RNA: Small nucleolar RNA SNORA26
Organism: Collichthys lucidus
RNA sequence: UUGCCCACUUGAGGUUGUUAAUGUCUUGAGUGGCCAUUAUUGAGGGGUAGACUAUGGUCCUCUCAGAAAACCUGGGUCAGGGGUCUUACCCCUGCCUCUGGACCUGUCUGGAGGAACAAGA
Dot-bracket structure: .(((((..(....(.((.(..........)....)).)...)..)))))........(.(((.((......(.(((.(.(((((...))))).).))).)........))))).)......